[Rfam]
A member of the RNA family "T-box leader" from Romboutsia maritimum, 254 nucleotides long. Uncharged tRNA acts as the effector for transcription antitermination of genes in the T-box leader family. T-boxes are found upstream of many aminoacyl-tRNA synthetase genes and some amino acid biosynthetic genes usually in Gram-positive bacteria. A search with the family's covariance model found it, with a score of 122 bits. Rfam classes the family as a cis-regulatory leader. Gene Ontology term of the family: tRNA binding.
RNA sequence: AUUAAAGCUAUGAAGAGAAGAAGUAAAUCUAAUAGAGUUUAACAGAGAGUUACCGGAAGGUGAGAGGUGCAAAAUAAGUUAGAUUGAAUACAUCUAUGAGCAGUAGUUCCGAAAGAUAACAACUAGUAGGCGACUAUCGUGUUUGCACACGUUACAGUGCAGUAGUAUACGAAAAUUUGUGUACUUUAAGAGAUUAAUAUUUAUAUAUUAAUGAAUUAAGGUGGUACCACGUGAGUUAAGCUCUCGUCCUUUUA
Numbered sequence: 001a002u003u004a005a006a007g008c009u010a011u012g013a014a015g016a017g018a019a020g021a022a023g024u025a026a027a028u029c030u031a032a033u034a035g036a037g038u039u040u041a042a043c044a045g046a047g048a049g050u051u052a053c054c055g056g057a058a059g060g061u062g063a064g065a066g067g068u069g070c071a072a073a074a075u076a077a078g079u080u081a082g083a084u085u086g087a088a089u090a091c092a093u094c095u096a097u098g099a100g101c102a103g104u105a106g107u108u109c110c111g112a113a114a115g116a117u118a119a120c121a122a123c124u125a126g127u128a129g130g131c132g133a134c135u136a137u138c139g140u141g142u143u144u145g146c147a148c149a150c151g152u153u154a155c156a157g158u159g160c161a162g163u164a165g166u167a168u169a170c171g172a173a174a175a176u177u178u179g180u181g182u183a184c185u186u187u188a189a190g191a192g193a194u195u196a197a198u199a200u201u202u203a204u205a206u207a208u209u210a211a212u213g214a215a216u217u218a219a220g221g222u223g224g225u226a227c228c229a230c231g232u233g234a235g236u237u238a239a240g241c242u243c244u245c246g247u248c249c250u251u252u253u254a
Stems, first nucleotide, its partner, number of pairs: 007101002016095003026085006038074003051069004104136005109130002138151003193212007218251004229247003233243003